[Rfam]
This 102-nucleotide RNA from Thermolongibacillus altinsuensis belongs to the Rfam family "Purine riboswitch aptamer". Rfam describes the family as follows. Riboswitches are metabolite binding domains within certain messenger RNAs that serve as precision sensors for their corresponding targets.
RNA sequence: ACUUCAUAUGGCUGACUCACUCAUAUAAUUGCGGGAAUAUGGCUCGCGAGUCUCUACCGGUCGACCGUAAAUCGACCGACUAUGAGUGGCAAUGUCAGAGCG
Number, nucleotide and partner (000 for none) at each position: 001a000002c000003u000004u000005c000006a000007u000008a000009u000010g000011g000012c000013u000014g000015a000016c000017u000018c088019a087020c086021u085022c084023a083024u082025a081026u000027a000028a000029u049030u048031g047032c046033g045034g044035g043036a000037a000038u000039a000040u000041g000042g000043c035044u034045c033046g032047c031048g030049a029050g000051u000052c000053u000054c000055u000056a000057c000058c078059g077060g076061u075062c074063g073064a072065c000066c000067g000068u000069a000070a000071a000072u064073c063074g062075a061076c060077c059078g058079a000080c000081u025082a024083u023084g022085a021086g020087u019088g018089g000090c000091a000092a000093u000094g000095u000096c000097a000098g000099a000100g000101c000102g000